[Rfam]
RNA sequence: ACUCAACGAGCUUUUAAUUAUGAGAGGUGAGUUUCAUUUGUAAAAGCAAGCUGUCUUAGAACAGAUCCUUGAUCAAUUGUGUAGCCUCAAACUUGAUUUUUAGGAGUUU
Numbered sequence: 001a002c003u004c005a006a007c008g009a010g011c012u013u014u015u016a017a018u019u020a021u022g023a024g025a026g027g028u029g030a031g032u033u034u035c036a037u038u039u040g041u042a043a044a045a046g047c048a049a050g051c052u053g054u055c056u057u058a059g060a061a062c063a064g065a066u067c068c069u070u071g072a073u074c075a076a077u078u079g080u081g082u083a084g085c086c087u088c089a090a091a092c093u094u095g096a097u098u099u100u101u102a103g104g105a106g107u108u109u
Stems, first nucleotide, its partner, number of pairs: 024088005035079002038076002044070003051064004
Rfam assigns this 109-nucleotide sequence to the family "6S-Flavo RNA".